[Rfam]
RNA sequence: CUUUUUUUCUUGCUUUAGAAAAAGCAAGUGGUGCGGAUGGGGAUUUUCUUCCCGCUCAGGAUUUAGUUAUUACCUGGCUAAACAAAAUAACUUGGCGAGCCUGCUC
Numbered sequence: 001c002u003u004u005u006u007u008u009c010u011u012g013c014u015u016u017a018g019a020a021a022a023a024g025c026a027a028g029u030g031g032u033g034c035g036g037a038u039g040g041g042g043a044u045u046u047u048c049u050u051c052c053c054g055c056u057c058a059g060g061a062u063u064u065a066g067u068u069a070u071u072a073c074c075u076g077g078c079u080a081a082a083c084a085a086a087a088u089a090a091c092u093u094g095g096c097g098a099g100c101c102u103g104c105u106c
Base pairs, nucleotide, nucleotide: 009028010027011026012025013024014023015022038054039053040052042050043049056077057076058075059074065092066091067090068089069088070087

wcaG RNA: a 106-nucleotide RNA from Synechococcus phage S-H25. Taxonomically the source falls in Tefnutvirus (Viruses, Heunggongvirae, Caudoviricetes, Pantevenvirales). The match comes from Rfam's covariance-model search (61 bits). The family's RNA type in Rfam is cis-regulatory element.